[Rfam]
A member of the RNA family "Bacterial RNase P class B" from Pseudogracilibacillus auburnensis, 377 nucleotides long.
The source organism's lineage runs through Bacteria, Bacillati, Bacillota, Bacilli and Pseudogracilibacillus.
The match comes from Rfam's covariance-model search (287 bits).
Clan: RNaseP clan.
Rfam describes the family as follows. Ribonuclease P (RNase P) is a ubiquitous endoribonuclease, found in archaea, bacteria and eukarya as well as chloroplasts and mitochondria. Its best characterised activity is the generation of mature 5'-ends of tRNAs by cleaving the 5'-leader elements of precursor-tRNAs. Cellular RNase Ps are ribonucleoproteins. RNA from bacterial RNase Ps retains its catalytic activity in the absence of the protein subunit, i.e. it is a ribozyme.
RNA sequence: AUGCUCAUGUAAUCGCUGCACAGUUUACUGUGUAGAGGAAAGUCCAUGCUCACACAAGCUGCGAUGCUUGUAGUGUUCAUGCUUGAUGAAAUAAUAAGUCAAGGUAACCGGAGUGGUUAACGGCAGGAGUUUAUUUCUACGUCUUUUUGAUAGGAAAUAAAGCCUUGAAAGUGCCACAGUGACGAAGAUGAAUGGAAACAUUCUGAAGUGGAACGGGUAAACCCCAUGAGUGAGCAACCCAAACUAUGGUAGGGGCAUCCUCUGAUUAGGAAAUGAACGAAAAGAGGGACAAGAAUCACUUGUAGAUAAAUGAUUACAACCCGAGUACGAGGCUGACCACCGUUUUAGUACAAAGGAACAGAACAUGGCUUAUCGAG
Numbered sequence: 001a002u003g004c005u006c007a008u009g010u011a012a013u014c015g016c017u018g019c020a021c022a023g024u025u026u027a028c029u030g031u032g033u034a035g036a037g038g039a040a041a042g043u044c045c046a047u048g049c050u051c052a053c054a055c056a057a058g059c060u061g062c063g064a065u066g067c068u069u070g071u072a073g074u075g076u077u078c079a080u081g082c083u084u085g086a087u088g089a090a091a092u093a094a095u096a097a098g099u100c101a102a103g104g105u106a107a108c109c110g111g112a113g114u115g116g117u118u119a120a121c122g123g124c125a126g127g128a129g130u131u132u133a134u135u136u137c138u139a140c141g142u143c144u145u146u147u148u149g150a151u152a153g154g155a156a157a158u159a160a161a162g163c164c165u166u167g168a169a170a171g172u173g174c175c176a177c178a179g180u181g182a183c184g185a186a187g188a189u190g191a192a193u194g195g196a197a198a199c200a201u202u203c204u205g206a207a208g209u210g211g212a213a214c215g216g217g218u219a220a221a222c223c224c225c226a227u228g229a230g231u232g233a234g235c236a237a238c239c240c241a242a243a244c245u246a247u248g249g250u251a252g253g254g255g256c257a258u259c260c261u262c263u264g265a266u267u268a269g270g271a272a273a274u275g276a277a278c279g280a281a282a283a284g285a286g287g288g289a290c291a292a293g294a295a296u297c298a299c300u301u302g303u304a305g306a307u308a309a310a311u312g313a314u315u316a317c318a319a320c321c322c323g324a325g326u327a328c329g330a331g332g333c334u335g336a337c338c339a340c341c342g343u344u345u346u347a348g349u350a351c352a353a354a355g356g357a358a359c360a361g362a363a364c365a366u367g368g369c370u371u372a373u374c375g376a377g
Stems, first nucleotide, its partner, number of pairs: 004377003007373001008318007016035006040371003044368005049234005054071006077229005082103006104121001105119006122224002125165003134157004141151003171222002173218003190203005238254003258288006289303005320356002325351004